Bacterial RNase P class A: a 338-nucleotide RNA sequence from Thermotoga maritima.

RNA sequence: GGAGAGGAGCAGGCGGUCGCGGGGGCGCACACCUGCGCUUCCCGAGGAAAGUCCGGACUCUGGAGCGGGGUGCCGGGUAACGCCCGGGAGGGGUGACCCUCGGACAGGGCCAUAGAGAAGAAGACCGCCCGUUGAGGGCAAGGGUGGAACGGUGGGGUAAGAGCCCACCAGCGUCGGGGCAACCCGGCGGCUUGGCAACCCCCACCUGGAGCAAGGCCAAGCAGGGGGUUGGGUCGCUCCCCCUAUUCCCCCGGGUUGGCCGCUUGAGGUGUGCGGUAACGCACACCCCAGAUUGAUGACCGCCCACGACAGAAUCCGGCUUAUGCUCCUCUCCCGUG
Numbered sequence: 001g002g003a004g005a006g007g008a009g010c011a012g013g014c015g016g017u018c019g020c021g022g023g024g025g026c027g028c029a030c031a032c033c034u035g036c037g038c039u040u041c042c043c044g045a046g047g048a049a050a051g052u053c054c055g056g057a058c059u060c061u062g063g064a065g066c067g068g069g070g071u072g073c074c075g076g077g078u079a080a081c082g083c084c085c086g087g088g089a090g091g092g093g094u095g096a097c098c099c100u101c102g103g104a105c106a107g108g109g110c111c112a113u114a115g116a117g118a119a120g121a122a123g124a125c126c127g128c129c130c131g132u133u134g135a136g137g138g139c140a141a142g143g144g145u146g147g148a149a150c151g152g153u154g155g156g157g158u159a160a161g162a163g164c165c166c167a168c169c170a171g172c173g174u175c176g177g178g179g180c181a182a183c184c185c186g187g188c189g190g191c192u193u194g195g196c197a198a199c200c201c202c203c204a205c206c207u208g209g210a211g212c213a214a215g216g217c218c219a220a221g222c223a224g225g226g227g228g229u230u231g232g233g234u235c236g237c238u239c240c241c242c243c244u245a246u247u248c249c250c251c252c253g254g255g256u257u258g259g260c261c262g263c264u265u266g267a268g269g270u271g272u273g274c275g276g277u278a279a280c281g282c283a284c285a286c287c288c289c290a291g292a293u294u295g296a297u298g299a300c301c302g303c304c305c306a307c308g309a310c311a312g313a314a315u316c317c318g319g320c321u322u323a324u325g326c327u328c329c330u331c332u333c334c335c336g337u338g
Stems, first nucleotide, its partner, number of pairs: 001334011012304007020044005025038004049322003053319005058211004063239004068207005073087005088101005102202002107200002109196003125143002127139004151169006171191001172189007215261004225252004231243003268287008
Rfam's curators put it in the seed alignment. Pairs were carried over by alignment from the consensus structure, which is taken from published work. By type it is a ribozyme.